RNA sequence: UAACAGGAUAGAGGCGCAGCCUUCAAAAGUACAGCGCGGCGAGAAAGGACCGAUUUCGCCAUCAGCCGCGCAUGGAAAGGGUGGGCUGCCGAAGAGAGCGUGGGCCGGUCCGCGCCGCUUUCUGGUCAGUUGUCCGAACAGGAAAAUGACUGUCAUCAUGCAAUAUGAUGGAGCGCUAUCGCUUUU
Numbered sequence: 001u002a003a004c005a006g007g008a009u010a011g012a013g014g015c016g017c018a019g020c021c022u023u024c025a026a027a028a029g030u031a032c033a034g035c036g037c038g039g040c041g042a043g044a045a046a047g048g049a050c051c052g053a054u055u056u057c058g059c060c061a062u063c064a065g066c067c068g069c070g071c072a073u074g075g076a077a078a079g080g081g082u083g084g085g086c087u088g089c090c091g092a093a094g095a096g097a098g099c100g101u102g103g104g105c106c107g108g109u110c111c112g113c114g115c116c117g118c119u120u121u122c123u124g125g126u127c128a129g130u131u132g133u134c135c136g137a138a139c140a141g142g143a144a145a146a147u148g149a150c151u152g153u154c155a156u157c158a159u160g161c162a163a164u165a166u167g168a169u170g171g172a173g174c175g176c177u178a179u180c181g182c183u184u185u186u
Base pairs, nucleotide, nucleotide: 007180008179009178010177011176016089017088018087019086020085021084022083024081032074033073034071035070036069037068038067039066093123094122095121096120097119098118099117100116103113124151125150126149127148128147130145131144133142134141153171154170155169156168157167158166159165